[Rfam]
RNA sequence: CACCGAGUCCGAGGUUCCGGGGUGACCGGAACUUGGUGCAAAAGGGA
Numbered sequence: 001c002a003c004c005g006a007g008u009c010c011g012a013g014g015u016u017c018c019g020g021g022g023u024g025a026c027c028g029g030a031a032c033u034u035g036g037u038g039c040a041a042a043a044g045g046g047a
Stems, first nucleotide, its partner, number of pairs: 013033008
Shown here is a 47-nucleotide sequence from Streptomyces hokutonensis, a member of the family "raiA-hairpin RNA". NCBI's taxonomy places the organism under Bacteria, Bacillati, Actinomycetota, Kitasatosporales, Streptomyces. By type it is a small RNA.